[Rfam]
RNA sequence: UCAAAGGCUAUGAACAGGAGAGUAGGGAUUAUAAAUUCUAAACCAGAGAAUGGAGGUCAGCGGCUGGAAGCCUCCUUUAGAAUGUAAUCCUGAAGACCACCUGGGAGCUGACUGCCGAACAGUGCUUUUUUAAGCACUCAGUAAGCAGAUCCGGUCAGAAAUGGCCGUUAACUUUAAUGAGGGAGUCACAAACUUCUGAUGGAGAGGUUUGGGGCUAAUUAGAGUGGAACCGCGAAAGUAACCUUUCGUCUCUAAA
Numbered sequence: 001u002c003a004a005a006g007g008c009u010a011u012g013a014a015c016a017g018g019a020g021a022g023u024a025g026g027g028a029u030u031a032u033a034a035a036u037u038c039u040a041a042a043c044c045a046g047a048g049a050a051u052g053g054a055g056g057u058c059a060g061c062g063g064c065u066g067g068a069a070g071c072c073u074c075c076u077u078u079a080g081a082a083u084g085u086a087a088u089c090c091u092g093a094a095g096a097c098c099a100c101c102u103g104g105g106a107g108c109u110g111a112c113u114g115c116c117g118a119a120c121a122g123u124g125c126u127u128u129u130u131u132a133a134g135c136a137c138u139c140a141g142u143a144a145g146c147a148g149a150u151c152c153g154g155u156c157a158g159a160a161a162u163g164g165c166c167g168u169u170a171a172c173u174u175u176a177a178u179g180a181g182g183g184a185g186u187c188a189c190a191a192a193c194u195u196c197u198g199a200u201g202g203a204g205a206g207g208u209u210u211g212g213g214g215c216u217a218a219u220u221a222g223a224g225u226g227g228a229a230c231c232g233c234g235a236a237a238g239u240a241a242c243c244u245u246u247c248g249u250c251u252c253u254a255a256a
Stems, first nucleotide, its partner, number of pairs: 007108002015103004025091006038080003050077001052075006110150001112148004152167005184216004189211009221253004232249005
RNA: T-box leader